[Rfam]
Nucleotides: 074
Stems, first nucleotide, its partner, number of pairs: 002016005020035004025030001046072003050068003
Number, partner (000 for none) and nucleotide at each position: 001000a002016c003015g004014u005013a006012c007000a008000g009000g010000a011000a012006g013005u014004a015003c016002g017000u018000u019000c020035c021034g022033g023032u024000u025030c026000c027000u028000g029000c030025g031000c032023g033022c034021c035020g036000u037000c038000c039000g040000c041000c042000u043000a044000g045000c046072c047071u048070g049000a050068c051067g052066g053000c054000c055000g056000c057000u058000c059000g060000c061000u062000a063000c064000g065000g066052c067051c068050g069000a070048c071047a072046g073000a074000c